[Rfam]
RNA: S4-Clostridia ribosomal protein leader
Organism: Clostridiaceae bacterium OM08-6BH
RNA sequence: GAAAGGUCGGGUAUUUAUCCGGCUGGAUGCGCCAAAAGAGCGUGUCUCAUUUAGG
Number, nucleotide and partner (000 for none) at each position: 001g000002a000003a000004a000005g024006g023007u022008c021009g020010g019011g018012u017013a000014u000015u000016u000017a012018u011019c010020c009021g008022g007023c006024u005025g047026g046027a045028u044029g043030c042031g041032c000033c000034a000035a000036a000037a000038g000039a000040g000041c031042g030043u029044g028045u027046c026047u025048c000049a000050u000051u000052u000053a000054g000055g000